The record is a 94-nucleotide RNA sequence from Prolemur simus, which matches "Y RNA" in Rfam. Rfam classes the family as a non-coding RNA gene. It scores 50 bits against the family's covariance model. About the family: Y RNAs are components of the Ro ribonucleoprotein particle (Ro RNP), in association with Ro60 and La proteins.

[Rfam]
RNA sequence: GGCUAGUCCGAUGGUAGUGUUUAUCAGAACUUAUUAACAUUAGUGUCACUAAAGUUGGUAUUCAACACCCCACUGCUAAAUUUGACUGGCUAAA
Numbered sequence: 001g002g003c004u005a006g007u008c009c010g011a012u013g014g015u016a017g018u019g020u021u022u023a024u025c026a027g028a029a030c031u032u033a034u035u036a037a038c039a040u041u042a043g044u045g046u047c048a049c050u051a052a053a054g055u056u057g058g059u060a061u062u063c064a065a066c067a068c069c070c071c072a073c074u075g076c077u078a079a080a081u082u083u084g085a086c087u088g089g090c091u092a093a094a
Stems, first nucleotide, its partner, number of pairs: 002090007010083002015078001016074004032060003036056002